RNA sequence: UUUGAGCUCGAACGAUCGUUGUUGAAGCAAUCUAACGAAACACUACGUUUCUUUUGCAGCUUUAGGGAAAGUCCCCGGACUCUUGCGUCUUGGUUUCUUUUGAAACCAGGACAAGCGGAAACGCGCUGACCUAAAGAACCAGCGGUUUCAAUGGAAUGUUUGUCCCGUGGUAGGCGCUGUCUUGAUUUUUCUUGUAACCUUUUCUAUGUGCUUUUCGCUUCCGGAACGGAGUAGACAAAGAUAUAAGUCUAUGAAAUGUGCAUAGGAAAGUGUUUGAGGAAGAGCAAAACGGAUGCUUUGCGGGACUUACGGUUUCAUUGAACUGUGUUUUUUCGUCGUAGGCGAUAGUUAUACGAUCACAUCCACCAGUAGAUGUAACUCAAUGGGGCUUAGUCAUGGGCUCAG
Numbered sequence: 001u002u003u004g005a006g007c008u009c010g011a012a013c014g015a016u017c018g019u020u021g022u023u024g025a026a027g028c029a030a031u032c033u034a035a036c037g038a039a040a041c042a043c044u045a046c047g048u049u050u051c052u053u054u055u056g057c058a059g060c061u062u063u064a065g066g067g068a069a070a071g072u073c074c075c076c077g078g079a080c081u082c083u084u085g086c087g088u089c090u091u092g093g094u095u096u097c098u099u100u101u102g103a104a105a106c107c108a109g110g111a112c113a114a115g116c117g118g119a120a121a122c123g124c125g126c127u128g129a130c131c132u133a134a135a136g137a138a139c140c141a142g143c144g145g146u147u148u149c150a151a152u153g154g155a156a157u158g159u160u161u162g163u164c165c166c167g168u169g170g171u172a173g174g175c176g177c178u179g180u181c182u183u184g185a186u187u188u189u190u191c192u193u194g195u196a197a198c199c200u201u202u203u204c205u206a207u208g209u210g211c212u213u214u215u216c217g218c219u220u221c222c223g224g225a226a227c228g229g230a231g232u233a234g235a236c237a238a239a240g241a242u243a244u245a246a247g248u249c250u251a252u253g254a255a256a257u258g259u260g261c262a263u264a265g266g267a268a269a270g271u272g273u274u275u276g277a278g279g280a281a282g283a284g285c286a287a288a289a290c291g292g293a294u295g296c297u298u299u300g301c302g303g304g305a306c307u308u309a310c311g312g313u314u315u316c317a318u319u320g321a322a323c324u325g326u327g328u329u330u331u332u333u334c335g336u337c338g339u340a341g342g343c344g345a346u347a348g349u350u351a352u353a354c355g356a357u358c359a360c361a362u363c364c365a366c367c368a369g370u371a372g373a374u375g376u377a378a379c380u381c382a383a384u385g386g387g388g389c390u391u392a393g394u395c396a397u398g399g400g401c402u403c404a405g
Stems, first nucleotide, its partner, number of pairs: 002405009014358006022065007037051005069391003073388004088111010254330003260326003269319004360375004365370001
This 405-nucleotide RNA from Schizosaccharomyces cryophilus belongs to the Rfam family "RNase MRP". From the family's description: RNase MRP is an enzymatically active ribonucleoprotein with two distinct roles in eukaryotes. In mitochondria it plays a direct role in the initiation of mitochondrial DNA replication. In the nucleus it is involved in precursor rRNA processing, where it cleaves the internal transcribed spacer 1 between 18S and 5.8S rRNAs. Despite distinct functions, RNase MRP has been shown to be evolutionarily related to RNase P. Like eukaryotic RNase P, RNase MRP is not catalytically active without associated protein subunits. The literature on the family includes a 1993 paper in FASEB J by Schmitt et al., "Secondary structure of RNase MRP RNA as predicted by phylogenetic comparison". Rfam links the family to the GO terms ribonuclease MRP activity, rRNA processing and ribonuclease MRP complex.